[Rfam]
RNA sequence: AAGCAAACUGGAUCUAUCGCUGCUCGCAAGAGGAGAGGAAAGUCCGGGCAACAUAGAGCAUCUCGCUUCCUAACGGGAAGGGUUCGUUUGACGAAAACAGCAAGUGCCACAGAAAAUAUACCGCCUUCCUCGGGAGGUAAGGGUGAAAACGUGAGGUAAGAGCUCACGGUAUUGUAUGGUAACAUGCAUUACGGUAAACCUCGAGAGUUGAAAGACCAAAUAGGUUACGGACAUGGAAGCUGCUCGCUUUCUUUUAGGAGUUCUCUUAAAAUCCGUAAUGGGUAGGUUGAUGGAGCUUAUUAGUGAUGAUAAGCCUAGAUAAAUGAUAGAUACUUUGCCUCGGCAAUUUACAGAACCCGGCUUAUAAGGUUUGCUUCUUU
Numbered sequence: 001a002a003g004c005a006a007a008c009u010g011g012a013u014c015u016a017u018c019g020c021u022g023c024u025c026g027c028a029a030g031a032g033g034a035g036a037g038g039a040a041a042g043u044c045c046g047g048g049c050a051a052c053a054u055a056g057a058g059c060a061u062c063u064c065g066c067u068u069c070c071u072a073a074c075g076g077g078a079a080g081g082g083u084u085c086g087u088u089u090g091a092c093g094a095a096a097a098c099a100g101c102a103a104g105u106g107c108c109a110c111a112g113a114a115a116a117u118a119u120a121c122c123g124c125c126u127u128c129c130u131c132g133g134g135a136g137g138u139a140a141g142g143g144u145g146a147a148a149a150c151g152u153g154a155g156g157u158a159a160g161a162g163c164u165c166a167c168g169g170u171a172u173u174g175u176a177u178g179g180u181a182a183c184a185u186g187c188a189u190u191a192c193g194g195u196a197a198a199c200c201u202c203g204a205g206a207g208u209u210g211a212a213a214g215a216c217c218a219a220a221u222a223g224g225u226u227a228c229g230g231a232c233a234u235g236g237a238a239g240c241u242g243c244u245c246g247c248u249u250u251c252u253u254u255u256a257g258g259a260g261u262u263c264u265c266u267u268a269a270a271a272u273c274c275g276u277a278a279u280g281g282g283u284a285g286g287u288u289g290a291u292g293g294a295g296c297u298u299a300u301u302a303g304u305g306a307u308g309a310u311a312a313g314c315c316u317a318g319a320u321a322a323a324u325g326a327u328a329g330a331u332a333c334u335u336u337g338c339c340u341c342g343g344c345a346a347u348u349u350a351c352a353g354a355a356c357c358c359g360g361c362u363u364a365u366a367a368g369g370u371u372u373g374c375u376u377c378u379u380u
Stems, first nucleotide, its partner, number of pairs: 001376009011365001012331007020035002023032003040363003044360005049210004056267003061206005066080005081098001083095003099201002104199002106195003121142002123138006150168006171190001173188006214288004224279006258272001261269002295314008

The record is a 380-nucleotide sequence from Rhinopithecimicrobium faecis, which matches "Bacterial RNase P class A" in Rfam. Its family is annotated with tRNA processing, ribonuclease P activity and dimeric ribonuclease P complex in the Gene Ontology. Rfam's curators write: Ribonuclease P (RNase P) is a ubiquitous endoribonuclease, found in archaea, bacteria and eukarya as well as chloroplasts and mitochondria. By type it is a ribozyme. The family's consensus secondary structure is taken from published work.